[Rfam]
RNA sequence: UAAUCAAUAGGCGAUGGAGUUCGCCUUUGAGCGCCACUUUCCACGCGUGGCUAAUGACUCCUGUUUCAUG
Numbered sequence: 001u002a003a004u005c006a007a008u009a010g011g012c013g014a015u016g017g018a019g020u021u022c023g024c025c026u027u028u029g030a031g032c033g034c035c036a037c038u039u040u041c042c043a044c045g046c047g048u049g050g051c052u053a054a055u056g057a058c059u060c061c062u063g064u065u066u067c068a069u070g
Stems, first nucleotide, its partner, number of pairs: 010025004016061006033051004
Dot-bracket structure: .........[[[[..((((((]]]].......((((...........))))....)))))).........
RNA: Fluoride riboswitch aptamer (crcB RNA motif)
Organism: Niastella vici